A member of the RNA family "tRNA" from Thermomonospora curvata, 73 nucleotides long. The base pairs follow the family's consensus structure, which is taken from published work. Transfer RNA (tRNA) molecules are approximately 80 nucleotides in length.

[Rfam]
RNA sequence: GGGGCUGUGGCGCAGUUGGCAGCGCGGCGAGCUUACACCUCGUAGGUCGUCGGUUCGAAUCCGGCCAGCCCCA
Numbered sequence: 001g002g003g004g005c006u007g008u009g010g011c012g013c014a015g016u017u018g019g020c021a022g023c024g025c026g027g028c029g030a031g032c033u034u035a036c037a038c039c040u041c042g043u044a045g046g047u048c049g050u051c052g053g054u055u056c057g058a059a060u061c062c063g064g065c066c067a068g069c070c071c072c073a
Stems, first nucleotide, its partner, number of pairs: 001072007010025004027043005049065005